[Rfam]
RNA sequence: AAAUAUUAUAUAGAGUUUUCUCGUAUAAUCUUGGGAAAUAUGGUCCAAAAGUUUCUACCAAACCGCCGUAAAAGGGUUUGACUACGAGGUAAUAUUAGCUGUUG
Numbered sequence: 001a002a003a004u005a006u007u008a009u010a011u012a013g014a015g016u017u018u019u020c021u022c023g024u025a026u027a028a029u030c031u032u033g034g035g036a037a038a039u040a041u042g043g044u045c046c047a048a049a050a051g052u053u054u055c056u057a058c059c060a061a062a063c064c065g066c067c068g069u070a071a072a073a074g075g076g077u078u079u080g081a082c083u084a085c086g087a088g089g090u091a092a093u094a095u096u097a098g099c100u101g102u103u104g
Base pairs, nucleotide, nucleotide: 019089020088021087022086023085024084025083029050031048032047033046034045036044059080060079061078062077063076064075
This 104-nucleotide sequence from Scopulibacillus darangshiensis belongs to the Rfam family "Purine riboswitch aptamer".